Annotation: The record is an 81-nucleotide RNA sequence from Shimwellia blattae, which matches "antisense RNA of dnaA mRNA" in Rfam. A search with the family's covariance model found it, with a score of 72 bits. Pairs were carried over by alignment from the consensus structure, which was predicted with RNAfold.
RNA sequence: UUUGGCGUUCGGCUUGCGCGCGAUGAUCCCGUUGCCUACCGCGUGCAGCAGGUGGGUUUUCCCAAGCCCGGUGCCGCCGUA
Numbered sequence: 001u002u003u004g005g006c007g008u009u010c011g012g013c014u015u016g017c018g019c020g021c022g023a024u025g026a027u028c029c030c031g032u033u034g035c036c037u038a039c040c041g042c043g044u045g046c047a048g049c050a051g052g053u054g055g056g057u058u059u060u061c062c063c064a065a066g067c068c069c070g071g072u073g074c075c076g077c078c079g080u081a
Stems, first nucleotide, its partner, number of pairs: 005042003009038001011036003016032003020029001051078004056074002062071002